A member of the RNA family "MIR394 microRNA precursor family" from Carya illinoinensis, 110 nucleotides long.
Nucleotides: 110
Stems, first nucleotide, its partner, number of pairs: 011100001014096006023087011
Number, partner (000 for none) and nucleotide at each position: 001000u002000u003000a004000a005000c006000a007000g008000a009000g010000u011100u012000u013000a014096u015095u016094g017093g018092c019091a020000u021000u022000c023087u024086g025085u026084c027083c028082a029081c030080c031079u032078c033077c034000c035000u036000u037000c038000a039000a040000u041000a042000g043000a044000a045000a046000a047000c048000c049000u050000a051000g052000u053000a054000c055000u056000c057000u058000c059000u060000c061000u062000c063000u064000c065000u066000c067000u068000c069000u070000c071000u072000c073000u074000c075000a076000u077033g078032g079031a080030g081029g082028u083027g084026g085025g086024c087023a088000u089000a090000c091019u092018g093017c094016c095015a096014a097000c098000c099000g100011a101000g102000u103000u104000c105000u106000g107000u108000u109000g110000g

The family has 19 seed sequences and 724 matches in Rfam 15.1.